[Rfam]
RNA sequence: AUGCGAAUAUUCUCGCUGUCCUGAUAUUCCCGUAAUCAGGGGAGGCUAGACAUUCGCUAUAUGAAACUCUGCAUUGUGUCCUCCAGGACUAGAUUGUGGCUCUAGUACUGGCUUUGUAAAUGCUAGAGACAGAU
Numbered sequence: 001a002u003g004c005g006a007a008u009a010u011u012c013u014c015g016c017u018g019u020c021c022u023g024a025u026a027u028u029c030c031c032g033u034a035a036u037c038a039g040g041g042g043a044g045g046c047u048a049g050a051c052a053u054u055c056g057c058u059a060u061a062u063g064a065a066a067c068u069c070u071g072c073a074u075u076g077u078g079u080c081c082u083c084c085a086g087g088a089c090u091a092g093a094u095u096g097u098g099g100c101u102c103u104a105g106u107a108c109u110g111g112c113u114u115u116g117u118a119a120a121u122g123c124u125a126g127a128g129a130c131a132g133a134u
Stems, first nucleotide, its partner, number of pairs: 003057003016044002019041007067126002071123002083111004088106005
Dot-bracket structure: ..(((..........((.(((((((.........))))))).))..........))).........((..((..........((((.(((((.........))))).))))..........)).))........
The record is a 134-nucleotide RNA sequence from Brachypteracias leptosomus, which matches "Small nucleolar RNA SNORA72" in Rfam. Its family is annotated with RNA processing and nucleolus in the Gene Ontology. The literature on the family includes a 1997 paper in Genes Dev by Ganot et al., "The family of box ACA small nucleolar RNAs is defined by an evolutionarily conserved secondary structure and ubiquitous sequence elements essential for RNA accumulation". U72 is a member of the H/ACA class of snoRNAs. The snoRNA gene is located in intron 4 of the ribosomal L30 protein gene in human, mouse and chicken. It is annotated as an H/ACA-box small nucleolar RNA. Pairs were carried over by alignment from the consensus structure, which was predicted with PFOLD. The source organism's lineage runs through Eukaryota, Sarcopterygii, Saurischia, Neognathae and Brachypteracias.